[Rfam]
RNA sequence: AGUAAGGUGUAGAGACAGUUUAUUUAGUGUCUCUCCAUUGAGAAAGAACAUUGAGGUAUAUUGAAAACAAAGGCCAAGAUAUCGUUUCAAUAGUCAUUUUCCUUGAUUGACGAUUUGAUUGUUGCUUGGCCACAA
Numbered sequence: 001a002g003u004a005a006g007g008u009g010u011a012g013a014g015a016c017a018g019u020u021u022a023u024u025u026a027g028u029g030u031c032u033c034u035c036c037a038u039u040g041a042g043a044a045a046g047a048a049c050a051u052u053g054a055g056g057u058a059u060a061u062u063g064a065a066a067a068c069a070a071a072g073g074c075c076a077a078g079a080u081a082u083c084g085u086u087u088c089a090a091u092a093g094u095c096a097u098u099u100u101c102c103u104u105g106a107u108u109g110a111c112g113a114u115u116u117g118a119u120u121g122u123u124g125c126u127u128g129g130c131c132a133c134a135a
Stems, first nucleotide, its partner, number of pairs: 006039004011034007072131002075128004081119004090114002093111004098106002
Dot-bracket structure: .....((((.(((((((..........))))))).))))................................((.((((..((((.....((.((((.((.....)).)))).)).)))).....)))).))....
Annotation: The family of this 135-nucleotide RNA sequence from Corchorus olitorius is "Small nucleolar RNA snoR111". The family has 6 seed sequences and 533 matches in Rfam 15.1.